[Rfam]
RNA: mir-204 microRNA precursor family
RNA sequence: AUAUGACCUGUGAACUUCCCUUUGUCAUCCUAUGCCUGGAGUUAUACAGAAGGGGCUGGGAAGGCAAAGGGACGCUCCCCUGUCAUACAA
Numbered sequence: 001a002u003a004u005g006a007c008c009u010g011u012g013a014a015c016u017u018c019c020c021u022u023u024g025u026c027a028u029c030c031u032a033u034g035c036c037u038g039g040a041g042u043u044a045u046a047c048a049g050a051a052g053g054g055g056c057u058g059g060g061a062a063g064g065c066a067a068a069g070g071g072a073c074g075c076u077c078c079c080c081u082g083u084c085a086u087a088c089a090a
Stems, first nucleotide, its partner, number of pairs: 017072006024065002028061005034056004